[Rfam]
RNA sequence: GUCAACUAACCCUCGACUGAAGUCGAAGGCAUGAAGGAGCAAUCCAUUGUGCCUGGUUGAUUAGCCUAAGUGCUUCGGCACUACGUUGUUUUUGUCAUAACACCUACGGACGUCCAUCCUAAUCCGUGGCUCUGUUGCCUGUGAUUAAAAGUUCUCUUGGGUUAACGGGAACGGUGUUGCAGGCGUAAAAAGCAAUUACAACAUUGGCGAAGGAUGCCAAC
Numbered sequence: 001g002u003c004a005a006c007u008a009a010c011c012c013u014c015g016a017c018u019g020a021a022g023u024c025g026a027a028g029g030c031a032u033g034a035a036g037g038a039g040c041a042a043u044c045c046a047u048u049g050u051g052c053c054u055g056g057u058u059g060a061u062u063a064g065c066c067u068a069a070g071u072g073c074u075u076c077g078g079c080a081c082u083a084c085g086u087u088g089u090u091u092u093u094g095u096c097a098u099a100a101c102a103c104c105u106a107c108g109g110a111c112g113u114c115c116a117u118c119c120u121a122a123u124c125c126g127u128g129g130c131u132c133u134g135u136u137g138c139c140u141g142u143g144a145u146u147a148a149a150a151g152u153u154c155u156c157u158u159g160g161g162u163u164a165a166c167g168g169g170a171a172c173g174g175u176g177u178u179g180c181a182g183g184c185g186u187a188a189a190a191a192g193c194a195a196u197u198a199c200a201a202c203a204u205u206g207g208c209g210a211a212g213g214a215u216g217c218c219a220a221c
Stems, first nucleotide, its partner, number of pairs: 001061008010029002013026002016023002030051004064208003068204001069082005085202005092195004100135002104129007115216006137184009149175001151172006